[Rfam]
RNA sequence: UCAGUCGGCCGGACGGCCGCUCCCGCUGCGGCCGAAAGGCUGCGGGAGAGGAAAGUCCGGGCUCCAUCGACAUACGGUGCCGGAUAACGUCCGGCGGGGGCGACCCCAGGGACAGUGCCACAGAGAACGAACCGCCUCCUCCCCGGAGCAGGUAAGGGUGAAAAGGUGCGGUAAGAGCGCACCGCGUCUCCGGCAACGGAGACGGCAUGGCAAACCACACCGGGAGCAAAACCGAAUAGGGGCGGCAUCGCGAGAGGUUCGCCUUCGGCGAUAACAUCGCAGGGCCAUGUCGGGCCCGCUGUCCGGGUAGGUUGCAUGAGGCAACGUGCAAACGUUGCCCCAGAGGAAUGGCCGUCACGUAUCGCGUGCGCAAGCGCGCGGUGCCCUACAGAACCCGGCUUACAGGCCGGCUGAUAUG
Numbered sequence: 001u002c003a004g005u006c007g008g009c010c011g012g013a014c015g016g017c018c019g020c021u022c023c024c025g026c027u028g029c030g031g032c033c034g035a036a037a038g039g040c041u042g043c044g045g046g047a048g049a050g051g052a053a054a055g056u057c058c059g060g061g062c063u064c065c066a067u068c069g070a071c072a073u074a075c076g077g078u079g080c081c082g083g084a085u086a087a088c089g090u091c092c093g094g095c096g097g098g099g100g101c102g103a104c105c106c107c108a109g110g111g112a113c114a115g116u117g118c119c120a121c122a123g124a125g126a127a128c129g130a131a132c133c134g135c136c137u138c139c140u141c142c143c144c145g146g147a148g149c150a151g152g153u154a155a156g157g158g159u160g161a162a163a164a165g166g167u168g169c170g171g172u173a174a175g176a177g178c179g180c181a182c183c184g185c186g187u188c189u190c191c192g193g194c195a196a197c198g199g200a201g202a203c204g205g206c207a208u209g210g211c212a213a214a215c216c217a218c219a220c221c222g223g224g225a226g227c228a229a230a231a232c233c234g235a236a237u238a239g240g241g242g243c244g245g246c247a248u249c250g251c252g253a254g255a256g257g258u259u260c261g262c263c264u265u266c267g268g269c270g271a272u273a274a275c276a277u278c279g280c281a282g283g284g285c286c287a288u289g290u291c292g293g294g295c296c297c298g299c300u301g302u303c304c305g306g307g308u309a310g311g312u313u314g315c316a317u318g319a320g321g322c323a324a325c326g327u328g329c330a331a332a333c334g335u336u337g338c339c340c341c342a343g344a345g346g347a348a349u350g351g352c353c354g355u356c357a358c359g360u361a362u363c364g365c366g367u368g369c370g371c372a373a374g375c376g377c378g379c380g381g382u383g384c385c386c387u388a389c390a391g392a393a394c395c396c397g398g399c400u401u402a403c404a405g406g407c408c409g410g411c412u413g414a415u416a417u418g
Base pairs, nucleotide, nucleotide: 001414002413003412004411005410006409007408008407009406010405011403012356013355014354015353016352017351018350020048021047022046023045024044025043026042028040053401054400055399057398058397059396060395061394062226063225064224065223075222076221077220078219079218080094081093082092083091084090095109096107097106098105099104111216115215116214117211118210119209132157133156134153135152136151137150139148140147141146165183166182167181168180169179170178184206185204186203187202188201189200190199191198192197230313231312232311233310240304241303242302243301244300245299282297283296284295285294286293320339321338322337323336324335325334326333327332